RNA sequence: UCUUGUCCAGCGUGUGGCCGACGUUGUCGGCGCAUGUCCCGGCAGCCUCGGUCGUAACGGCUGCAACGCGGCCCCCGCGUCGACCGAUCCAGUCCGCGUCGCAUCGUUUCCGCGGACGAGCGCCAUCACGGCGCCGAUGC
Numbered sequence: 001u002c003u004u005g006u007c008c009a010g011c012g013u014g015u016g017g018c019c020g021a022c023g024u025u026g027u028c029g030g031c032g033c034a035u036g037u038c039c040c041g042g043c044a045g046c047c048u049c050g051g052u053c054g055u056a057a058c059g060g061c062u063g064c065a066a067c068g069c070g071g072c073c074c075c076c077g078c079g080u081c082g083a084c085c086g087a088u089c090c091a092g093u094c095c096g097c098g099u100c101g102c103a104u105c106g107u108u109u110c111c112g113c114g115g116a117c118g119a120g121c122g123c124c125a126u127c128a129c130g131g132c133g134c135c136g137a138u139g140c
Stems, first nucleotide, its partner, number of pairs: 011036004017031006042064006050085004066080006112140003120134005

The family of this 140-nucleotide RNA sequence from Rhizobium subbaraonis is "radC RNA". It is annotated as a cis-regulatory element. Lineage of the source: Bacteria > Pseudomonadati > Alphaproteobacteria > Rhizobiaceae > Rhizobium. The match comes from Rfam's covariance-model search (89 bits). Pairs were carried over by alignment from the consensus structure, which is taken from published work.